[Rfam]
RNA sequence: AAACCUUGUAAAAACAUAAAUAAAAAAAUCUGUUCUUAUCAGCUUAAUCUCUGGUACGGUGCUCAUUGAGUGCCCCUGAAGAUUAAACUGAUUUUUGGAAUGUGACGGAGUGCUAGGAGCUUGCUCCACCUCUGUCGCGGGUUGACCCGGUAUUGCAGUACCUCCGGGAACGGCCCACACAAA
Numbered sequence: 001a002a003a004c005c006u007u008g009u010a011a012a013a014a015c016a017u018a019a020a021u022a023a024a025a026a027a028a029u030c031u032g033u034u035c036u037u038a039u040c041a042g043c044u045u046a047a048u049c050u051c052u053g054g055u056a057c058g059g060u061g062c063u064c065a066u067u068g069a070g071u072g073c074c075c076c077u078g079a080a081g082a083u084u085a086a087a088c089u090g091a092u093u094u095u096u097g098g099a100a101u102g103u104g105a106c107g108g109a110g111u112g113c114u115a116g117g118a119g120c121u122u123g124c125u126c127c128a129c130c131u132c133u134g135u136c137g138c139g140g141g142u143u144g145a146c147c148c149g150g151u152a153u154u155g156c157a158g159u160a161c162c163u164c165c166g167g168g169a170a171c172g173g174c175c176c177a178c179a180c181a182a183a
Stems, first nucleotide, its partner, number of pairs: 007016003037056006058074007104136007116127004139176006146168005